[Rfam]
RNA: Small Cajal body specific RNA 8
Organism: Chiloscyllium punctatum
RNA sequence: UGGGAGAUUGAUACGCAAUUAGAAUCAAACACACUCUAAUUGUCACUAAUAUCUCCCUAAAAUAAAAAGCCUUUUGAUGACCGAGCCAACUUGAGAGAAAUUGGAGCGGACAGAUACGGGGCAAACAAAC
Numbered sequence: 001u002g003g004g005a006g007a008u009u010g011a012u013a014c015g016c017a018a019u020u021a022g023a024a025u026c027a028a029a030c031a032c033a034c035u036c037u038a039a040u041u042g043u044c045a046c047u048a049a050u051a052u053c054u055c056c057c058u059a060a061a062a063u064a065a066a067a068a069g070c071c072u073u074u075u076g077a078u079g080a081c082c083g084a085g086c087c088a089a090c091u092u093g094a095g096a097g098a099a100a101u102u103g104g105a106g107c108g109g110a111c112a113g114a115u116a117c118g119g120g121g122c123a124a125a126c127a128a129a130c
Stems, first nucleotide, its partner, number of pairs: 002057006015043004022036002025033001069122005081109003086104004